[Rfam]
RNA: terC RNA
RNA sequence: CCACCAGGCCGGGCCCCUCUGGCAGUUCUCAACGAACUGCGAUGUCGGACUGGACAU
Numbered sequence: 001c002c003a004c005c006a007g008g009c010c011g012g013g014c015c016c017c018u019c020u021g022g023c024a025g026u027u028c029u030c031a032a033c034g035a036a037c038u039g040c041g042a043u044g045u046c047g048g049a050c051u052g053g054a055c056a057u
Base pairs, nucleotide, nucleotide: 006051007050009048010047011046012045022040023039024038025037026036027035028034